[Rfam]
RNA sequence: GGCACAAAUUUGAAGAAGAGUAGAUUAAAAAGAUCAUCUAACCCUACUAAACUACUCUACUUCAAGUUUGUGCCC
Numbered sequence: 001g002g003c004a005c006a007a008a009u010u011u012g013a014a015g016a017a018g019a020g021u022a023g024a025u026u027a028a029a030a031a032g033a034u035c036a037u038c039u040a041a042c043c044c045u046a047c048u049a050a051a052c053u054a055c056u057c058u059a060c061u062u063c064a065a066g067u068u069u070g071u072g073c074c075c
Stems, first nucleotide, its partner, number of pairs: 001074009011064005017058007025050003030045001032043001034041001
Shown here is a 75-nucleotide sequence from Haemonchus placei, a member of the family "mir-5928 microRNA precursor family".